[Rfam]
RNA sequence: CAAGUUACCCAAACAAAAGCGCUGACUUGAGUUCAAUGCAGUAAGUGCUACUUGUUGGGGUAGCGUUG
Number, nucleotide and partner (000 for none) at each position: 001c000002a000003a000004g064005u063006u062007a061008c060009c059010c058011a000012a000013a055014c054015a053016a052017a000018a049019g048020c047021g046022c045023u044024g000025a042026c041027u040028u000029g000030a000031g000032u000033u000034c000035a000036a000037u000038g000039c000040a027041g026042u025043a000044a023045g022046u021047g020048c019049u018050a000051c000052u016053u015054g014055u013056u000057g000058g010059g009060g008061u007062a006063g005064c004065g000066u000067u000068g000
Annotation
Shown here is a 68-nucleotide RNA from Larimichthys crocea, a member of the family "miR-430 microRNA precursor family". Rfam links the family to the GO terms RISC complex and miRNA-mediated post-transcriptional gene silencing. Its Rfam clan is "mir-290 clan". Rfam 15.1 lists 24,817 matches to the family in 105 species.